RNA sequence: UCCAGCAGUAGUCAGCUAUCCGGACACAACCAUUCCUGUGAUGGUGUUACACUGCUGGGAGAGGAAUAUCUUGUCUUCAUCCAGUUGCCUAUGUCACUGUUCUGGUAGCAUGUGGCACUGGUACAAGGCAGGACUUUGCUUCCUUGAGAGUGUGCUAAGCAUUCACUUUGGCUGCUUAGUUCAAGUUAGGGAGCAGACACG
Numbered sequence: 001u002c003c004a005g006c007a008g009u010a011g012u013c014a015g016c017u018a019u020c021c022g023g024a025c026a027c028a029a030c031c032a033u034u035c036c037u038g039u040g041a042u043g044g045u046g047u048u049a050c051a052c053u054g055c056u057g058g059g060a061g062a063g064g065a066a067u068a069u070c071u072u073g074u075c076u077u078c079a080u081c082c083a084g085u086u087g088c089c090u091a092u093g094u095c096a097c098u099g100u101u102c103u104g105g106u107a108g109c110a111u112g113u114g115g116c117a118c119u120g121g122u123a124c125a126a127g128g129c130a131g132g133a134c135u136u137u138g139c140u141u142c143c144u145u146g147a148g149a150g151u152g153u154g155c156u157a158a159g160c161a162u163u164c165a166c167u168u169u170g171g172c173u174g175c176u177u178a179g180u181u182c183a184a185g186u187u188a189g190g191g192a193g194c195a196g197a198c199a200c201g
Stems, first nucleotide, its partner, number of pairs: 001059009011050002015045006021038001022036003069133008083122001085120001086117004092110003096106003136196008152182001154180001156178006
A member of the RNA family "Small nucleolar RNA SNORA74" from Marmota monax, 201 nucleotides long.
About the family: U19 belongs to the H/ACA class of snoRNAs. snoRNAs bind a number of proteins (including dyskerin, Gar1p and Nop10p in the case of the H/ACA class) to form snoRNP complexes. This class are thought to guide the sites of modification of uridines to pseudouridines by forming direct base pairing interactions with substrate RNAs. Targets may include ribosomal and spliceosomal RNAs but the exact functions of many snoRNAs, including U19, are not confirmed. Co-precipitation of U19 snoRNA with RNase MRP RNA suggests that U19 may be involved in pre-rRNA processing.
A reference for the family is Ganot et al. (1997), "The family of box ACA small nucleolar RNAs is defined by an evolutionarily conserved secondary structure and ubiquitous sequence elements essential for RNA accumulation", Genes Dev.
Pairs were carried over by alignment from the consensus structure, which was predicted with PFOLD.